[Rfam]
RNA sequence: ACUGGGACACGUCCGCACACACGAAGGUAGAGACGGGGGAACCACGGUUCCACCGGGCGCACAGGCUUCCUGCUCGCGUCCUCGGGGUUAAGUCGCACCGCAUCGCCCACCGGCGCUGCCCGCGGCCGGGUGUCUCCCAUCCGAACCCGACAGCUCACCCCGCAGGCAUGGGAGAGGUACA
Dot-bracket structure: .((...........................)).(((((....(........................................)(((.....((((.........................))))..((((.......))))...))).........)))))...................
Annotation: The record is a 181-nucleotide RNA from Arthrobacter echini, which matches "c-di-AMP riboswitch aptamer (ydaO/yuaA leader)" in Rfam. The match comes from Rfam's covariance-model search (44 bits).